[Rfam]
RNA: Purine riboswitch aptamer
RNA sequence: UCGCCUGAAUUGGCGAAACUUCAUAUAAUCCCAUAAAUAUGGUAUGGGAGUCUCUACGAGGCCACCUUAAAUGGCUUUACUAUGAAGGCAGGUCUUUCCAUU
Numbered sequence: 001u002c003g004c005c006u007g008a009a010u011u012g013g014c015g016a017a018a019c020u021u022c023a024u025a026u027a028a029u030c031c032c033a034u035a036a037a038u039a040u041g042g043u044a045u046g047g048g049a050g051u052c053u054c055u056a057c058g059a060g061g062c063c064a065c066c067u068u069a070a071a072u073g074g075c076u077u078u079a080c081u082a083u084g085a086a087g088g089c090a091g092g093u094c095u096u097u098c099c100a101u102u
Stems, first nucleotide, its partner, number of pairs: 019087007029049007058078007